[Rfam]
The record is a 59-nucleotide RNA from Arthrobacter rhombi, which matches "msiK RNA" in Rfam.
Taxonomically the source falls in Arthrobacter (Bacteria, Actinomycetota, Actinomycetes, Micrococcaceae).

RNA sequence: UUGUGACACCAUUCACAACGGACCGUCGGGCACGUACCUGCCCGUGAGGGGAUAGAUCA
Numbered sequence: 001u002u003g004u005g006a007c008a009c010c011a012u013u014c015a016c017a018a019c020g021g022a023c024c025g026u027c028g029g030g031c032a033c034g035u036a037c038c039u040g041c042c043c044g045u046g047a048g049g050g051g052a053u054a055g056a057u058c059a
Stems, first nucleotide, its partner, number of pairs: 009051002012048004027044006

The base pairs follow the family's consensus structure, which is taken from published work.